[Rfam]
RNA sequence: ACGGAAUAUGAGCCGAAUUUCAUGAUCAUGAAAACGGGGGAACCAAUCUUUUGGGGUGAAUUUCUUACUGUCUCUUCUGCAGGGUACAGCAGCAGAAGGACAGUUGAAUAGGGCGACCUGUGCAUGCCCGAAUCCGUCAGCUAACCUCGUAGGCCUAUGCAGCAGGAACC
Dot-bracket structure: ...........(((...(((((......)))))((((((....((......))(((.....(((.........................................)))..((((...........))))...))).........)))))).)))................
Numbered sequence: 001a002c003g004g005a006a007u008a009u010g011a012g013c014c015g016a017a018u019u020u021c022a023u024g025a026u027c028a029u030g031a032a033a034a035c036g037g038g039g040g041a042a043c044c045a046a047u048c049u050u051u052u053g054g055g056g057u058g059a060a061u062u063u064c065u066u067a068c069u070g071u072c073u074c075u076u077c078u079g080c081a082g083g084g085u086a087c088a089g090c091a092g093c094a095g096a097a098g099g100a101c102a103g104u105u106g107a108a109u110a111g112g113g114c115g116a117c118c119u120g121u122g123c124a125u126g127c128c129c130g131a132a133u134c135c136g137u138c139a140g141c142u143a144a145c146c147u148c149g150u151a152g153g154c155c156u157a158u159g160c161a162g163c164a165g166g167a168a169c170c
Stems, first nucleotide, its partner, number of pairs: 012154003018033005034150006044053002054135003062108003111129004
The family of this 170-nucleotide RNA from Paenibacillus sp. CAA11 is "c-di-AMP riboswitch aptamer (ydaO/yuaA leader)".
Its family is annotated with regulation of gene expression and cyclic-di-AMP binding in the Gene Ontology.
Lineage of the source: Bacteria > Bacillati > Bacillota > Paenibacillaceae > Paenibacillus.
It scores 89 bits against the family's covariance model.